[Rfam]
Nucleotides: 099
Base pairs, nucleotide, nucleotide: 006087007086008085009084010083011048012047013046014045016042017026018025019024033041034040035039054079055078056077057076060073061072062071063070
Number, partner (000 for none) and nucleotide at each position: 001000u002000c003000g004000g005000u006087c007086u008085u009084g010083u011048c012047g013046g014045a015000g016042u017026g018025c019024c020000u021000u022000a023000g024019g025018g026017c027000u028000g029000a030000g031000a032000c033041c034040g035039c036000a037000u038000u039035g040034c041033g042016g043000a044000a045014u046013c047012c048011g049000u050000g051000g052000a053000a054079c055078c056077u057076g058000a059000a060073c061072a062071g063070g064000u065000u066000a067000g068000a069000a070063c071062c072061u073060g074000c075000g076057u077056a078055g079054g080000a081000a082000a083010a084009c085008a086007a087006g088000c089000a090000a091000c092000a093000g094000c095000c096000u097000g098000a099000c